[Rfam]
Nucleotides: 042
Base pairs, nucleotide, nucleotide: 001042002041005039006038007037008036009035010034011033012032013031014030015029016028017027
Number, partner (000 for none) and nucleotide at each position: 001042g002041a003000u004000a005039g006038a007037u008036a009035g010034a011033u012032a013031g014030a015029u016028a017027g018000c019000a020000u021000g022000c023000u024000u025000a026000u027017c028016u029015a030014u031013c032012u033011a034010u035009c036008u037007a038006u039005c040000a041002u042001c